Rfam assigns this 63-nucleotide RNA from Erinaceus europaeus to the family "U7 small nuclear RNA".
For this family Rfam cites "3' end processing of mouse histone pre-mRNA: evidence for additional base-pairing between U7 snRNA and pre-mRNA" (Spycher et al., Nucleic Acids Res, 1994).
About the family: Animal histone pre-mRNAs are spliced by a different mechanism than nuclear pre-mRNAs and self-splicing introns. This processing involves the U7 snRNP, which contains only one RNA species: U7. The 5' end of U7 RNA is thought to base-pair to a conserved spacer element downstream of the cleavage site in histone pre-mRNA. This family contains a number of annotated U7 pseudogenes.
Taxonomically the source falls in Erinaceus (Eukaryota, Gnathostomata, Sarcopterygii, Amniota).
RNA sequence: GAGUGUUACAGCUCUUUUAGAAUAUGUGUAGUAGGUCUUCCUGUCUCUACUGGAAGCACCCCC
Numbered sequence: 001g002a003g004u005g006u007u008a009c010a011g012c013u014c015u016u017u018u019a020g021a022a023u024a025u026g027u028g029u030a031g032u033a034g035g036u037c038u039u040c041c042u043g044u045c046u047c048u049a050c051u052g053g054a055a056g057c058a059c060c061c062c063c
Base pairs, nucleotide, nucleotide: 034060035059036058037056038055039054040053041052043050044049